[Rfam]
RNA sequence: CUUGAAAAAGGCAAACCAAGCGAGAGCUUGGGACGCAAAGUGACCGGUCUGACGGCUUCGGCCAAGACAGCGGGACUGCCAAGU
Numbered sequence: 001c002u003u004g005a006a007a008a009a010g011g012c013a014a015a016c017c018a019a020g021c022g023a024g025a026g027c028u029u030g031g032g033a034c035g036c037a038a039a040g041u042g043a044c045c046g047g048u049c050u051g052a053c054g055g056c057u058u059c060g061g062c063c064a065a066g067a068c069a070g071c072g073g074g075a076c077u078g079c080c081a082a083g084u
Stems, first nucleotide, its partner, number of pairs: 003081002011036002016031006034070001039077003044073003047068003
A member of the RNA family "c-di-GMP-I-GGC riboswitch aptamer" from Candidatus Accumulibacter sp. BA-94, 84 nucleotides long.
Taxonomically the source falls in Candidatus Accumulibacter (Bacteria, Pseudomonadati, Pseudomonadota, Betaproteobacteria).
Clan: c-di-GMP_I riboswitch clan.
The match comes from Rfam's covariance-model search (66 bits).
The base pairs follow the family's consensus structure, which is taken from published work.